The family of this 155-nucleotide RNA sequence from Electrophorus electricus is "Small nucleolar RNA U109". Taxonomically the source falls in Electrophorus (Eukaryota, Opisthokonta, Deuterostomia, Chordata).
[Rfam]
RNA sequence: UUGCAUGCAGUGGCUUUACUGCCCCAACAUGUCCAUCUUUCCACUGUUGAGAUGGGUGUGAAAGGAACAGCAUGCUAGAGUAAACCACAUGGAGUUAACAGGGCCACCAGUCUCUCAAGAGCAGGCUGCGUUGGUAGUAUAAUACUCCAACAAAA
Number, nucleotide and partner (000 for none) at each position: 001u000002u000003g075004c074005a073006u072007g071008c070009a000010g000011u000012g000013g000014c000015u000016u000017u000018a000019c000020u000021g000022c000023c000024c000025c000026a000027a000028c000029a000030u000031g000032u000033c000034c000035a000036u000037c000038u000039u000040u000041c000042c000043a000044c000045u000046g000047u000048u000049g000050a000051g000052a000053u000054g000055g000056g000057u000058g000059u000060g000061a000062a000063a000064g000065g000066a000067a000068c000069a000070g008071c007072a006073u005074g004075c003076u000077a000078g000079a000080g000081u000082a000083a000084a000085c000086c000087a000088c000089a000090u000091g148092g147093a146094g145095u000096u000097a000098a000099c000100a000101g000102g000103g135104c134105c000106a000107c130108c128109a127110g126111u125112c124113u123114c121115u000116c000117a000118a000119g000120a000121g114122c000123a113124g112125g111126c110127u109128g108129c000130g107131u000132u000133g000134g104135u103136a000137g000138u000139a000140u000141a000142a000143u000144a000145c094146u093147c092148c091149a000150a000151c000152a000153a000154a000155a000